Rfam assigns this 117-nucleotide RNA sequence from Paenacidovorax caeni to the family "ALIL pseudoknot". Rfam 15.1 lists 2,146 matches to the family in 1,098 species. It scores 111 bits against the family's covariance model. The organism belongs to Paenacidovorax, within Bacteria. The family's consensus secondary structure is taken from published work. The family's RNA type in Rfam is cis-regulatory element.

RNA sequence: CGCGUUUUUUGCGCAGGCGGAGCUCGACCGCCGACUCAAGUCGUGAAGGCCUACAUCGACCGCCACCGAGACGACUACGGGGUCGAGCCCAUCUGCCGGGUGCUGCAGAUGGCCCCG
Numbered sequence: 001c002g003c004g005u006u007u008u009u010u011g012c013g014c015a016g017g018c019g020g021a022g023c024u025c026g027a028c029c030g031c032c033g034a035c036u037c038a039a040g041u042c043g044u045g046a047a048g049g050c051c052u053a054c055a056u057c058g059a060c061c062g063c064c065a066c067c068g069a070g071a072c073g074a075c076u077a078c079g080g081g082g083u084c085g086a087g088c089c090c091a092u093c094u095g096c097c098g099g100g101u102g103c104u105g106c107a108g109a110u111g112g113c114c115c116c117g
Stems, first nucleotide, its partner, number of pairs: 016032005078117005089112002092109005098103001